[Rfam]
RNA: MIR1435 microRNA precursor family
RNA sequence: UUAGUUGGUCCUAAGUCAAACUUCUCUAACUUUGAUCCAAGUUUAUAAACAAACAUAUUAAUGUCUACAUUACCGAAUAAAUGCACUAUCAAGACAUAUUUUACGGUAGAUUUUAUGAAACUAAUUUGAUGUUGUGGAUAUUGUUGCAUUUUUUAAUAAACUUGAUCAAAGUUACAGAAGUUUUACUUAGGACAAAACUCA
Numbered sequence: 001u002u003a004g005u006u007g008g009u010c011c012u013a014a015g016u017c018a019a020a021c022u023u024c025u026c027u028a029a030c031u032u033u034g035a036u037c038c039a040a041g042u043u044u045a046u047a048a049a050c051a052a053a054c055a056u057a058u059u060a061a062u063g064u065c066u067a068c069a070u071u072a073c074c075g076a077a078u079a080a081a082u083g084c085a086c087u088a089u090c091a092a093g094a095c096a097u098a099u100u101u102u103a104c105g106g107u108a109g110a111u112u113u114u115a116u117g118a119a120a121c122u123a124a125u126u127u128g129a130u131g132u133u134g135u136g137g138a139u140a141u142u143g144u145u146g147c148a149u150u151u152u153u154u155a156a157u158a159a160a161c162u163u164g165a166u167c168a169a170a171g172u173u174a175c176a177g178a179a180g181u182u183u184u185a186c187u188u189a190g191g192a193c194a195a196a197a198c199u200c201a
Stems, first nucleotide, its partner, number of pairs: 005196002008193002011190006018183008031170005046155004051150002056146002060142010074128005